The family of this 91-nucleotide RNA sequence from Flavobacterium psychrotolerans is "Flavo-1 RNA". By type it is a small RNA. The organism belongs to Flavobacterium, within Bacteria.
[Rfam]
RNA sequence: UUUUAGCCCUGAUGGAAGCGGAAAUCCUUCUCUUUUUAGAUUGUGAAGCAAAUCUAAAAAGGGAAGAUUGAAACGGACAGCAGGAACGGGA
Dot-bracket structure: ........(((.((...(....((((..((((((((((((((........)))))))))))))).))))....)...)).)))........